mir-8364 microRNA precursor family: a 61-nucleotide RNA sequence from Pristionchus pacificus. Lineage of the source: Eukaryota > Chromadorea > Diplogasteroidea > Neodiplogasteridae > Pristionchus. Pairs were carried over by alignment from the consensus structure, which was predicted with RNAalifold. Rfam links the family to the GO terms RISC complex and miRNA-mediated post-transcriptional gene silencing. It scores 68 bits against the family's covariance model.
[Rfam]
RNA sequence: UCGUCAUUCCUCAUACUCUCUCGCCUGUCAGGGUGAUGAGAGUGUGUGAGAAAUGACGAGA
Numbered sequence: 001u002c003g004u005c006a007u008u009c010c011u012c013a014u015a016c017u018c019u020c021u022c023g024c025c026u027g028u029c030a031g032g033g034u035g036a037u038g039a040g041a042g043u044g045u046g047u048g049a050g051a052a053a054u055g056a057c058g059a060g061a
Stems, first nucleotide, its partner, number of pairs: 001059007010050001012048005019041004